[Rfam]
RNA: U2 spliceosomal RNA
RNA sequence: UCAGCUCUCUUUGCCUUUUGGCUUAGAUCAAGUGUAGUAUCUGUUCUUUUCGGUUUAAUCUCUGAAAUUGCUCUUUGAGCAUUAUAUGAUUAAAUCAAUUUUUGCCCCUCGGAGACAGUCCCUCUGGGCUUGUCCCAUGGUUGGUCUCCACUGUGUCCAUGGUCUUACACUGUCUCCAUGAGACGCGAAACCUC
Number, nucleotide and partner (000 for none) at each position: 001u000002c000003a000004g000005c000006u000007c000008u027009c026010u025011u000012u000013g022014c021015c020016u000017u000018u000019u000020g015021g014022c013023u000024u000025a010026g009027a008028u000029c000030a000031a000032g000033u000034g000035u000036a000037g000038u000039a000040u000041c000042u000043g000044u000045u000046c000047u000048u067049u066050u065051c064052g063053g062054u000055u000056u000057a000058a000059u000060c000061u000062c053063u052064g051065a050066a049067a048068u000069u081070g080071c079072u078073c077074u000075u000076u000077g073078a072079g071080c070081a069082u000083u000084a000085u000086a000087u000088g000089a000090u000091u000092a000093a000094a000095u000096c000097a000098a000099u000100u000101u000102u000103u000104g000105c000106c000107c000108c000109u000110c000111g149112g148113a147114g146115a145116c144117a000118g142119u000120c000121c000122c000123u000124c000125u137126g136127g135128g134129c000130u000131u000132g000133u000134c128135c127136c126137a125138u000139g000140g000141u000142u118143g000144g116145u115146c114147u113148c112149c111150a000151c000152u187153g186154u185155g184156u183157c182158c180159a179160u178161g177162g176163u000164c000165u000166u000167a000168c000169a000170c000171u000172g000173u000174c000175u000176c162177c161178a160179u159180g158181a000182g157183a156184c155185g154186c153187g152188a000189a000190a000191c000192c000193u000194c000